[Rfam]
RNA sequence: AAGAAAGGGGGUGAGAAUCCCCCUCACCGUAAGCCCAAGGUUUCCCACGCCAUGAUCAUCAGCGUGGGGUCAGUCGGUCCUAAGGCGAGGCAGAAGUGCGUAGCCGAUGGGUUAGCAGGUUAAUAUUCCUGCACCAUGGUUCGCAAGCGAUGGGGCCACAGGCCGCGUGUCGCAGGCUGCCCAGCGAGAACGCAGUUGCUAUGCUGUGGGGAUGCAUUGGAAAGCCCGUGCUGGUACUCGUGCGAAAUCCCCUGGGCAUGGCACUCAAGCUGCGGCGUACGGCCUCAGGAAACACCCCUAAGCACCACAAAGCGCACCGUGUCCGUACCGCAAACCGACGCAGGUGGGCGUGAUGAGCAUUCUCAGGUGCA
Numbered sequence: 001a002a003g004a005a006a007g008g009g010g011g012u013g014a015g016a017a018u019c020c021c022c023c024u025c026a027c028c029g030u031a032a033g034c035c036c037a038a039g040g041u042u043u044c045c046c047a048c049g050c051c052a053u054g055a056u057c058a059u060c061a062g063c064g065u066g067g068g069g070u071c072a073g074u075c076g077g078u079c080c081u082a083a084g085g086c087g088a089g090g091c092a093g094a095a096g097u098g099c100g101u102a103g104c105c106g107a108u109g110g111g112u113u114a115g116c117a118g119g120u121u122a123a124u125a126u127u128c129c130u131g132c133a134c135c136a137u138g139g140u141u142c143g144c145a146a147g148c149g150a151u152g153g154g155g156c157c158a159c160a161g162g163c164c165g166c167g168u169g170u171c172g173c174a175g176g177c178u179g180c181c182c183a184g185c186g187a188g189a190a191c192g193c194a195g196u197u198g199c200u201a202u203g204c205u206g207u208g209g210g211g212a213u214g215c216a217u218u219g220g221a222a223a224g225c226c227c228g229u230g231c232u233g234g235u236a237c238u239c240g241u242g243c244g245a246a247a248u249c250c251c252c253u254g255g256g257c258a259u260g261g262c263a264c265u266c267a268a269g270c271u272g273c274g275g276c277g278u279a280c281g282g283c284c285u286c287a288g289g290a291a292a293c294a295c296c297c298c299u300a301a302g303c304a305c306c307a308c309a310a311a312g313c314g315c316a317c318c319g320u321g322u323c324c325g326u327a328c329c330g331c332a333a334a335c336c337g338a339c340g341c342a343g344g345u346g347g348g349c350g351u352g353a354u355g356a357g358c359a360u361u362c363u364c365a366g367g368u369g370c371a
Base pairs, nucleotide, nucleotide: 006024007023008022009021010020011019025369026368027367028366033349034348035347036346039329040328044068045067046066047065048064049063053061054060075325076324077323079110080109084105085104086103088101090099091098092097115132116131117130118129119128135321136320137319138318139317140316142314143313144312147303148302152298153297154296155295160285161284162283163282166281167280168279169276170275171274172273173272175197176196177195178194179193180192198249202244203243204242209237211235214231215230216229217228219227220226251269253267254266255265256264335344336343352362353361